[Rfam]
RNA: FMN riboswitch aptamer (RFN element)
RNA sequence: GCAUGUUCUCAGGGCGGGGCGGAAUUCCCCACCGGCGGUAAUGGCCUUGGCCUCAGCCCGCGAGCGCCUUGGCUUUGGCCAAGGGUCAGCAGAUCUGGUGCGACUCCAGAGCCGACGGUCAUAGUCCGGAUGAAAGAGAAUGCAG
Numbered sequence: 001g002c003a004u005g006u007u008c009u010c011a012g013g014g015c016g017g018g019g020c021g022g023a024a025u026u027c028c029c030c031a032c033c034g035g036c037g038g039u040a041a042u043g044g045c046c047u048u049g050g051c052c053u054c055a056g057c058c059c060g061c062g063a064g065c066g067c068c069u070u071g072g073c074u075u076u077g078g079c080c081a082a083g084g085g086u087c088a089g090c091a092g093a094u095c096u097g098g099u100g101c102g103a104c105u106c107c108a109g110a111g112c113c114g115a116c117g118g119u120c121a122u123a124g125u126c127c128g129g130a131u132g133a134a135a136g137a138g139a140a141u142g143c144a145g
Stems, first nucleotide, its partner, number of pairs: 004142007017029003031125002033114002035061004056112002064090002094110005116128003